Rfam assigns this 111-nucleotide RNA to the family "Actinomyces-1 RNA".
By type it is a small RNA.
RNA sequence: GUCACCGCCGGACAGGGACGGUCUCGAGGGUUGGGGAGCCCAGUGACAGAUCGAUCCCCUGAGAUGAAGUUGGGUCAUAGGGAGCCUGACAUCAUCGUUUCGGCGAAGGAG
Numbered sequence: 001g002u003c004a005c006c007g008c009c010g011g012a013c014a015g016g017g018a019c020g021g022u023c024u025c026g027a028g029g030g031u032u033g034g035g036g037a038g039c040c041c042a043g044u045g046a047c048a049g050a051u052c053g054a055u056c057c058c059c060u061g062a063g064a065u066g067a068a069g070u071u072g073g074g075u076c077a078u079a080g081g082g083a084g085c086c087u088g089a090c091a092u093c094a095u096c097g098u099u100u101c102g103g104c105g106a107a108g109g110a111g
Base pairs, nucleotide, nucleotide: 006105007104008103009102010101011100012099013061014060015059016058018055019053020052021051022050023049024048028041029040030039031038032037063096064095065094066093067092071088072087073086074085075084
The sequence is in the family's curated seed alignment. The family's consensus secondary structure is taken from published work.